A member of the RNA family "Small nucleolar RNA SNORD35" from Turnix velox, 85 nucleotides long. About the family: U35 is a C/D box snoRNA located in intron 6 of ribosomal protein L13A and intron 3 of ribosomal protein S11 in humans and at homologous positions in mouse and chicken ribosomal protein genes. Rfam 15.1 lists 1,842 matches to the family in 634 species. The family is grouped with related families in Rfam's "SNORD35 clan". It is annotated as a C/D-box small nucleolar RNA.
RNA sequence: UGGUGGUGAUGUCCAAACUCAUGAUGGUCUUCGAAGUCCCAAGAGUAUGGAUGACAGUGCCAGUGGUGAUUUCUGAACUGCAAGG
Numbered sequence: 001u002g003g004u005g006g007u008g009a010u011g012u013c014c015a016a017a018c019u020c021a022u023g024a025u026g027g028u029c030u031u032c033g034a035a036g037u038c039c040c041a042a043g044a045g046u047a048u049g050g051a052u053g054a055c056a057g058u059g060c061c062a063g064u065g066g067u068g069a070u071u072u073c074u075g076a077a078c079u080g081c082a083a084g085g
Stems, first nucleotide, its partner, number of pairs: 001080004